The family of this 93-nucleotide sequence from Paenibacillus prosopidis is "c-di-GMP-I-GGC riboswitch aptamer".
On this family, see Weinberg et al., Proc Natl Acad Sci U S A 2017: "Bioinformatic analysis of riboswitch structures uncovers variant classes with altered ligand specificity".
[Rfam]
RNA sequence: UUAAUAAAAGGCAAACCCGUACGAAAGUCGGGGACGCAAAGCCACGGGUCUUACGUCAUGAUUAUUCAUGAACUGACAGCCGGGUUGCUUAAG
Numbered sequence: 001u002u003a004a005u006a007a008a009a010g011g012c013a014a015a016c017c018c019g020u021a022c023g024a025a026a027g028u029c030g031g032g033g034a035c036g037c038a039a040a041g042c043c044a045c046g047g048g049u050c051u052u053a054c055g056u057c058a059u060g061a062u063u064a065u066u067c068a069u070g071a072a073c074u075g076a077c078a079g080c081c082g083g084g085u086u087g088c089u090u091a092a093g
Stems, first nucleotide, its partner, number of pairs: 001093001003090002011037002016032004021028002035079001040086004045082003048077003